[Rfam]
MIR408 microRNA precursor family: a 117-nucleotide RNA sequence from Coptis chinensis. Its family is annotated with RISC complex and miRNA-mediated post-transcriptional gene silencing in the Gene Ontology. The literature on the family includes a 2004 paper in Plant Cell by Sunkar and Zhu, "Novel and stress-regulated microRNAs and other small RNAs from Arabidopsis". It scores 79 bits against the family's covariance model.

RNA sequence: GUAAGAAUGGGAGAUAUAGACAUGGACGAGGCAGAGCAUGGAAUGGACCAACAACACAACUUCGUUGUUGCUCUUCCCAUGCACUGCCUCUUCCCUGGCUCUCCACAUCUCCUUUAC
Number, nucleotide and partner (000 for none) at each position: 001g000002u000003a000004a000005g000006a000007a000008u000009g000010g000011g000012a000013g000014a000015u000016a000017u000018a100019g099020a000021c097022a096023u000024g094025g093026a092027c000028g000029a089030g088031g087032c086033a085034g084035a000036g082037c081038a080039u079040g078041g077042a000043a000044u000045g073046g072047a000048c000049c000050a000051a000052c000053a000054a000055c000056a000057c000058a000059a000060c000061u000062u000063c000064g000065u000066u000067g000068u000069u000070g000071c000072u046073c045074u000075u000076c000077c041078c040079a039080u038081g037082c036083a000084c034085u033086g032087c031088c030089u029090c000091u000092u026093c025094c024095c000096u022097g021098g000099c019100u018101c000102u000103c000104c000105a000106c000107a000108u000109c000110u000111c000112c000113u000114u000115u000116a000117c000